[Rfam]
RNA: Small nucleolar RNA snoR104
Organism: Elaeis guineensis
RNA sequence: GGGUGGCAUACAAAAGCCGAGUUGUUAACCCGAUACAGUCUUCCUACAUUAAAUUUGUAGUUUCCUGCUUGUGGUACUUUGAGAAAGUUCUGCAAGUCUCAAAAUACAAGACAUUAAG
Numbered sequence: 001g002g003g004u005g006g007c008a009u010a011c012a013a014a015a016g017c018c019g020a021g022u023u024g025u026u027a028a029c030c031c032g033a034u035a036c037a038g039u040c041u042u043c044c045u046a047c048a049u050u051a052a053a054u055u056u057g058u059a060g061u062u063u064c065c066u067g068c069u070u071g072u073g074g075u076a077c078u079u080u081g082a083g084a085a086a087g088u089u090c091u092g093c094a095a096g097u098c099u100c101a102a103a104a105u106a107c108a109a110g111a112c113a114u115u116a117a118g
Stems, first nucleotide, its partner, number of pairs: 001031003006025003056111001058109001067097008076088003